[Rfam]
RNA sequence: AAGGCUUUACUUUAAUCUGUACCUAUAAUCUGGUAGCUUUACACUAAGUUUAAUUAGUUAAUGCUGCUUUUUGUGAAGCCUAUUAAGUUCUCCCUCGCUAUCCAAGGCUGCUUUUAUGUUGCAUUGGACGUUGGGAAACUAUAUCU
Numbered sequence: 001a002a003g004g005c006u007u008u009a010c011u012u013u014a015a016u017c018u019g020u021a022c023c024u025a026u027a028a029u030c031u032g033g034u035a036g037c038u039u040u041a042c043a044c045u046a047a048g049u050u051u052a053a054u055u056a057g058u059u060a061a062u063g064c065u066g067c068u069u070u071u072u073g074u075g076a077a078g079c080c081u082a083u084u085a086a087g088u089u090c091u092c093c094c095u096c097g098c099u100a101u102c103c104a105a106g107g108c109u110g111c112u113u114u115u116a117u118g119u120u121g122c123a124u125u126g127g128a129c130g131u132u133g134g135g136a137a138a139c140u141a142u143a144u145c146u
Stems, first nucleotide, its partner, number of pairs: 001083001003080003008075002027068001033067005039061002043058003087139003091136004096130002101128005110119002
RNA: Small nucleolar RNA snoR136